Annotation
The record is a 331-nucleotide sequence from Aspergillus sclerotialis, which matches "A. fumigatus sRNA Afu_309" in Rfam.

RNA sequence: AUCAACAGAACACCUCACGGAUCUGUGUCCAGCGAUCCCGUUCACAAUCGCAGUAAUUUCUCGGAAAGGCCUACAUUGUGUUUCGGUUGAGCGCUGGGCAAUUCGACGACAAAAGGAGCCAUGCAAUGUGAUUGCAUGGUUGACUUCUUCCUGUCGACAGAUCUCAGAUUAAUUGCCGACUCCGGGGGUUCGCUUCGGUCUUGAGUUCCCUCCUCGUAAGGGGAGGUGAAUUCGGCUGGAGGCCCUGGAUGUUGGCGGCGUCAUAUUCCUGAUCCCUUUGCCGAGCACCAGUGUUGUGAGGUCUGGGAAAAACCAUGGCUGGCCAACAUAU
Numbered sequence: 001a002u003c004a005a006c007a008g009a010a011c012a013c014c015u016c017a018c019g020g021a022u023c024u025g026u027g028u029c030c031a032g033c034g035a036u037c038c039c040g041u042u043c044a045c046a047a048u049c050g051c052a053g054u055a056a057u058u059u060c061u062c063g064g065a066a067a068g069g070c071c072u073a074c075a076u077u078g079u080g081u082u083u084c085g086g087u088u089g090a091g092c093g094c095u096g097g098g099c100a101a102u103u104c105g106a107c108g109a110c111a112a113a114a115g116g117a118g119c120c121a122u123g124c125a126a127u128g129u130g131a132u133u134g135c136a137u138g139g140u141u142g143a144c145u146u147c148u149u150c151c152u153g154u155c156g157a158c159a160g161a162u163c164u165c166a167g168a169u170u171a172a173u174u175g176c177c178g179a180c181u182c183c184g185g186g187g188g189u190u191c192g193c194u195u196c197g198g199u200c201u202u203g204a205g206u207u208c209c210c211u212c213c214u215c216g217u218a219a220g221g222g223g224a225g226g227u228g229a230a231u232u233c234g235g236c237u238g239g240a241g242g243c244c245c246u247g248g249a250u251g252u253u254g255g256c257g258g259c260g261u262c263a264u265a266u267u268c269c270u271g272a273u274c275c276c277u278u279u280g281c282c283g284a285g286c287a288c289c290a291g292u293g294u295u296g297u298g299a300g301g302u303c304u305g306g307g308a309a310a311a312a313c314c315a316u317g318g319c320u321g322g323c324c325a326a327c328a329u330a331u
Stems, first nucleotide, its partner, number of pairs: 019164008027099006034092001036090002038086003043080006053070002057066003107156005114145002118140003175252002181249006197237004203233006209226007257324003260319005273308004280302003285294003

A search with the family's covariance model found it, with a score of 214 bits. The organism belongs to Aspergillus subgen. Polypaecilum, within Eukaryota. For this family Rfam cites "Small ncRNA transcriptome analysis from Aspergillus fumigatus suggests a novel mechanism for regulation of protein synthesis" (Jochl et al., Nucleic Acids Res, 2008).